Record summary
The record is a 106-nucleotide RNA from Bacillus oleivorans, which matches "SAM riboswitch aptamer (S box leader)" in Rfam. Pairs were carried over by alignment from the consensus structure, which is taken from published work. The match comes from Rfam's covariance-model search (102 bits).

RNA sequence: UUCUUAUCAAGAGAGGUUGAGGGUAAGGCCCGAUGACACCUCAGCAACCUGUCAAUUUUGACAAGGUGCUAAUUCCUGCAGGUUUAUAGAACCUGAAAGAUAAGAG
Number, nucleotide and partner (000 for none) at each position: 001u106002u105003c104004u103005u102006a101007u100008c099009a000010a000011g000012a000013g042014a041015g040016g039017u038018u000019g000020a000021g031022g030023g029024u000025a000026a077027g076028g075029c023030c022031c021032g000033a000034u000035g000036a000037c000038a017039c016040c015041u014042c013043a070044g069045c068046a067047a000048c066049c065050u063051g062052u061053c060054a000055a000056u000057u000058u000059u000060g053061a052062c051063a050064a000065g049066g048067u046068g045069c044070u043071a000072a000073u000074u098075c028076c027077u026078g000079c095080a094081g093082g092083u091084u090085u000086a000087u000088a000089g000090a084091a083092c082093c081094u080095g079096a000097a000098a074099g008100a007101u006102a005103a004104g003105a002106g001